[Rfam]
RNA sequence: UUUCUGCAGUGAUGAAUUUAGCAUAAAUCCACAUGUCAGACUUCAGAGAUUUACUAAAUCAAUGAGAAUGACAAUUCUAAAUUUACUGAGCAGAAG
Numbered sequence: 001u002u003u004c005u006g007c008a009g010u011g012a013u014g015a016a017u018u019u020a021g022c023a024u025a026a027a028u029c030c031a032c033a034u035g036u037c038a039g040a041c042u043u044c045a046g047a048g049a050u051u052u053a054c055u056a057a058a059u060c061a062a063u064g065a066g067a068a069u070g071a072c073a074a075u076u077c078u079a080a081a082u083u084u085a086c087u088g089a090g091c092a093g094a095a096g
Stems, first nucleotide, its partner, number of pairs: 001096007048060004
Shown here is a 96-nucleotide RNA sequence from Senna tora, a member of the family "Small nucleolar RNA R64/Z200 family". Rfam 15.1 lists 748 matches to the family in 228 species. It is annotated as a C/D-box small nucleolar RNA. Rfam links the family to the GO terms nucleolus and RNA processing. NCBI's taxonomy places the organism under Eukaryota, Streptophytina, Pentapetalae, rosids, Senna.